[Rfam]
RNA sequence: UGGACGGAAUCUUUUGGAUCCGUACCGUAUAAAAUCCGGGUCAUCAAUCUAUCAUAAUUUUAUAGCAUAUCGCUUGGAUCGAAAGACCGGGACGAAUUC
Numbered sequence: 001u002g003g004a005c006g007g008a009a010u011c012u013u014u015u016g017g018a019u020c021c022g023u024a025c026c027g028u029a030u031a032a033a034a035u036c037c038g039g040g041u042c043a044u045c046a047a048u049c050u051a052u053c054a055u056a057a058u059u060u061u062a063u064a065g066c067a068u069a070u071c072g073c074u075u076g077g078a079u080c081g082a083a084a085g086a087c088c089g090g091g092a093c094g095a096a097u098u099c
Base pairs, nucleotide, nucleotide: 001027002026003025004023005022006021007020008019010018011017070095071094072093073091074090075089076088077087079086080085
The record is a 99-nucleotide RNA from Megasphaera elsdenii, which matches "pan motif" in Rfam. By type it is a cis-regulatory element.